A member of the RNA family "Purine riboswitch aptamer" from Paenibacillus sp. OAS669, 100 nucleotides long. Its family is annotated with purine nucleobase biosynthetic process in the Gene Ontology. The match comes from Rfam's covariance-model search (63 bits). Taxonomically the source falls in Paenibacillus (Bacteria, Bacillati, Bacilli, Paenibacillaceae).

RNA sequence: GGGCUUACAUUAAUCACUGUUCGUAUAUCUUCGGCGAUAUGGGCUGAAGGUCUCUACAAGGAACCGAUAAUUCCUGACUACGAGUGGGCGGGCUUUCCGC
Numbered sequence: 001g002g003g004c005u006u007a008c009a010u011u012a013a014u015c016a017c018u019g020u021u022c023g024u025a026u027a028u029c030u031u032c033g034g035c036g037a038u039a040u041g042g043g044c045u046g047a048a049g050g051u052c053u054c055u056a057c058a059a060g061g062a063a064c065c066g067a068u069a070a071u072u073c074c075u076g077a078c079u080a081c082g083a084g085u086g087g088g089c090g091g092g093c094u095u096u097c098c099g100c
Base pairs, nucleotide, nucleotide: 018086019085020084021083022082023081024080025079029049030048031047032046033045034044035043059075060074061073062072063071